RNA sequence: UGAUGGCAGUGAUGAUUUCCUUGAUGAUGCUUUCCCUGAUGUGUAAACCAUGAGGGUCGCACAGUCACUACCUCUUCUGAUGCCAUCU
Numbered sequence: 001u002g003a004u005g006g007c008a009g010u011g012a013u014g015a016u017u018u019c020c021u022u023g024a025u026g027a028u029g030c031u032u033u034c035c036c037u038g039a040u041g042u043g044u045a046a047a048c049c050a051u052g053a054g055g056g057u058c059g060c061a062c063a064g065u066c067a068c069u070a071c072c073u074c075u076u077c078u079g080a081u082g083c084c085a086u087c088u
Base pairs, nucleotide, nucleotide: 002087003086004085005084006083007082
A member of the RNA family "Small nucleolar RNA SNORD11B" from Podarcis muralis, 88 nucleotides long. On this family, see Yang et al., Nucleic Acids Res 2006: "snoSeeker: an advanced computational package for screening of guide and orphan snoRNA genes in the human genome". Its Rfam clan is "SNORD11 clan". Its family is annotated with RNA processing and nucleolus in the Gene Ontology. It scores 76 bits against the family's covariance model. Pairs were carried over by alignment from the consensus structure, which was predicted with WAR.